[Rfam]
RNA sequence: CGCCCAUCCCCGGGGGGCCGCUGAUACGCGGCUGAGAGCUGGCCAGACAGGCCACGACCCGUUGAACCUGAUCCGGCUGAUACCGGCGUAGGGAGGGUUGGUGGCCUGUCU
Number, nucleotide and partner (000 for none) at each position: 001c000002g000003c000004c000005c000006a099007u000008c097009c096010c095011c061012g060013g059014g058015g000016g055017g032018c031019c030020g029021c028022u000023g000024a000025u000026a000027c000028g021029c020030g019031g018032c017033u000034g000035a000036g000037a000038g000039c000040u054041g053042g052043c051044c050045a000046g000047a000048c000049a000050g044051g043052c042053c041054a040055c016056g000057a000058c014059c013060c012061g011062u000063u000064g000065a000066a000067c092068c091069u090070g089071a000072u000073c086074c085075g084076g083077c000078u000079g000080a000081u000082a000083c076084c075085g074086g073087c000088g000089u070090a069091g068092g067093g000094a000095g010096g009097g008098u000099u006100g000101g000102u000103g000104g000105c000106c000107u000108g000109u000110c000111u000
RNA: TPP riboswitch aptamer (THI element)